This 106-nucleotide RNA sequence from Rhododendron williamsianum belongs to the Rfam family "Small nucleolar RNA snoR97". The family has 7 seed sequences and 862 matches in Rfam 15.1.

[Rfam]
RNA sequence: AAGAAACUGUUGGUGUAGGGUCUGAAAAACUCAAAAGAUUUUGUGCUGUCAUCAACUUCUUCUCUUGCUAUCCACGGGAUUGGAGUCAAACUAACAGCCUAUAUUC
Numbered sequence: 001a002a003g004a005a006a007c008u009g010u011u012g013g014u015g016u017a018g019g020g021u022c023u024g025a026a027a028a029a030c031u032c033a034a035a036a037g038a039u040u041u042u043g044u045g046c047u048g049u050c051a052u053c054a055a056c057u058u059c060u061u062c063u064c065u066u067g068c069u070a071u072c073c074a075c076g077g078g079a080u081u082g083g084a085g086u087c088a089a090a091c092u093a094a095c096a097g098c099c100u101a102u103a104u105u106c
Stems, first nucleotide, its partner, number of pairs: 043099001045098004055086005061079004